[Rfam]
Overview: The family of this 98-nucleotide RNA sequence from Lupinus angustifolius is "mir-399 microRNA precursor family". The base pairs follow the family's consensus structure, which was predicted with PFOLD. The literature on the family includes a 2004 paper in Mol Cell by Jones-Rhoades and Bartel, "Computational Identification of Plant MicroRNAs and Their Targets, Including a Stress-Induced miRNA". The family has 13 seed sequences and 2,396 matches in Rfam 15.1. It scores 57 bits against the family's covariance model.

RNA sequence: UGUAGAAUGGCAGGGCAAUUCUCCUUUGGCAGAAAAACAGUUCUCGUGCAAGAACAGUGUUGCAUUCUGCUAAAGGAGAUUUGCACUGUUAUUCUUCU
Number, nucleotide and partner (000 for none) at each position: 001u000002g000003u000004a000005g094006a093007a092008u091009g090010g000011c088012a087013g086014g000015g084016c083017a082018a081019u000020u000021c078022u077023c076024c075025u000026u000027u072028g071029g070030c069031a068032g067033a066034a065035a000036a000037a000038c000039a000040g000041u000042u000043c000044u000045c000046g000047u000048g000049c000050a000051a000052g000053a000054a000055c000056a000057g000058u000059g000060u000061u000062g000063c000064a000065u034066u033067c032068u031069g030070c029071u028072a027073a000074a000075g024076g023077a022078g021079a000080u000081u018082u017083g016084c015085a000086c013087u012088g011089u000090u009091a008092u007093u006094c005095u000096u000097c000098u000
Record summary
Gene Ontology terms of the family: RISC complex and miRNA-mediated post-transcriptional gene silencing. From the family's description: mir-399 was identified in both Arabidopsis thaliana and Oryza sativa computationally and was later experimentally verified. mir-399 is thought to target mRNAs coding for a phosphatase transporter. The mature sequence is excised from the 3' arm of the hairpin.